[Rfam]
Record summary:
The family of this 61-nucleotide RNA from Massilia sp. Root351 is "Betaproteobacteria toxic small RNA". Taxonomically the source falls in Massilia (Bacteria, Pseudomonadota, Betaproteobacteria, Oxalobacteraceae). A reference for the family is Kimelman et al. (2012), "A vast collection of microbial genes that are toxic to bacteria", Genome Res. The base pairs follow the family's consensus structure, which was predicted with WAR. A search with the family's covariance model found it, with a score of 54 bits. Rfam's curators write: Overexpression in amino aid rich medium attenuates growth, suggesting role in repressing amino acid intake and metabolism.
RNA sequence: UGUCUCCUCUAUCCUCCUCCAAGAGAUAGAAUUAGCCCGCUCCCGUAGCGGGCAUUUUUUU
Numbered sequence: 001u002g003u004c005u006c007c008u009c010u011a012u013c014c015u016c017c018u019c020c021a022a023g024a025g026a027u028a029g030a031a032u033u034a035g036c037c038c039g040c041u042c043c044c045g046u047a048g049c050g051g052g053c054a055u056u057u058u059u060u061u
Stems, first nucleotide, its partner, number of pairs: 008030006014023001035053007